[Rfam]
RNA: Potassium channel RNA editing signal
Organism: Stegodyphus mimosarum
RNA sequence: GUGGGCUACGGCGAUAUGAGGCCAAUCGGCGUCUGGGGCAAAAUAGUGGGCUCCCUCUGCGCCAUUGCCGGCGUCCUAACCAUCGCCCUUCCCGUGCCAGUAAUAGUCUCCAAU
Dot-bracket structure: ((.((..((.(..((..(..((..............((.(........(((.........)))..........).))................)).)..))..).))..)).))